The family of this 119-nucleotide RNA sequence from Firmicutes bacterium CAG:536 is "FMN riboswitch aptamer (RFN element)". A search with the family's covariance model found it, with a score of 119 bits. The RFN element is a highly conserved domain that is found frequently in the 5'-untranslated regions of prokaryotic mRNAs that encode for flavin mononucleotide (FMN) biosynthesis and transport proteins. Its family is annotated with FMN binding in the Gene Ontology.
RNA sequence: UAAGUUCUUCGGGGCAAGGUGUAAUUCCUUACCGGCGGUCAAAGUCCGCGACCCAUGAAAAUGGUUGAUCUGGUGAAAUUCCAGAACCGACAGUAUAGUCUGGAUGGUAGAAGAAAAAA
Numbered sequence: 001u002a003a004g005u006u007c008u009u010c011g012g013g014g015c016a017a018g019g020u021g022u023a024a025u026u027c028c029u030u031a032c033c034g035g036c037g038g039u040c041a042a043a044g045u046c047c048g049c050g051a052c053c054c055a056u057g058a059a060a061a062u063g064g065u066u067g068a069u070c071u072g073g074u075g076a077a078a079u080u081c082c083a084g085a086a087c088c089g090a091c092a093g094u095a096u097a098g099u100c101u102g103g104a105u106g107g108u109a110g111a112a113g114a115a116a117a118a119a
Stems, first nucleotide, its partner, number of pairs: 005115006017029003031099002033089002035049004044087002053064002069085005091102003